[Rfam]
RNA sequence: UUAUGAGGAACGCAGACUAAAAACGCCACAUCCUGUGGCAACGUCUGCAUGACCCGCAUCUUGCGGC
Numbered sequence: 001u002u003a004u005g006a007g008g009a010a011c012g013c014a015g016a017c018u019a020a021a022a023a024c025g026c027c028a029c030a031u032c033c034u035g036u037g038g039c040a041a042c043g044u045c046u047g048c049a050u051g052a053c054c055c056g057c058a059u060c061u062u063g064c065g066g067c
Base pairs, nucleotide, nucleotide: 012048013047014046015045016044017043025039026038027037028036029035054066055065056064057063